Overview:
U4atac minor spliceosomal RNA: a 127-nucleotide RNA sequence from Chiloscyllium punctatum. For this family Rfam cites "Evolutionary conservation of minor U12-type spliceosome between plants and humans" (Lorkovic et al., RNA, 2005). Rfam classes the family as a spliceosomal small nuclear RNA. From the family's description: U4atac is an essential component of the minor U12-type spliceosome complex which is required for removal of the rarer class of eukaryotic introns (AT-AC, U12-type). The family's consensus secondary structure is taken from published work.
RNA sequence: ACUGUCCUUAUCUUGGGGUUGCGUGGCUGUUCAAUGAACGUAUGGUGAGAACAGCACUGCUAACACCAUUACAACACAUGCGCAUCACCUAGAUAUUUGUCUAGGCUAUGGUGCAAUUUUUGGAACC
Numbered sequence: 001a002c003u004g005u006c007c008u009u010a011u012c013u014u015g016g017g018g019u020u021g022c023g024u025g026g027c028u029g030u031u032c033a034a035u036g037a038a039c040g041u042a043u044g045g046u047g048a049g050a051a052c053a054g055c056a057c058u059g060c061u062a063a064c065a066c067c068a069u070u071a072c073a074a075c076a077c078a079u080g081c082g083c084a085u086c087a088c089c090u091a092g093a094u095a096u097u098u099g100u101c102u103a104g105g106c107u108a109u110g111g112u113g114c115a116a117u118u119u120u121u122g123g124a125a126c127c
Stems, first nucleotide, its partner, number of pairs: 006018004021060003026055007038046002082114006088105006